[Rfam]
RNA: SAM riboswitch aptamer (S box leader)
RNA sequence: UUCUUAUCAAGAGAAGUAGAGGGACUGGCCCGAUGACACUUCAGCAACAGGCUAAUACGCACUGUGCUAAUUCCAGAGAGAUGAGAU
Numbered sequence: 001u002u003c004u005u006a007u008c009a010a011g012a013g014a015a016g017u018a019g020a021g022g023g024a025c026u027g028g029c030c031c032g033a034u035g036a037c038a039c040u041u042c043a044g045c046a047a048c049a050g051g052c053u054a055a056u057a058c059g060c061a062c063u064g065u066g067c068u069a070a071u072u073c074c075a076g077a078g079a080g081a082u083g084a085g086a087u
Stems, first nucleotide, its partner, number of pairs: 002086007013042005021031003025076004043068004048064002050060001053057001072079001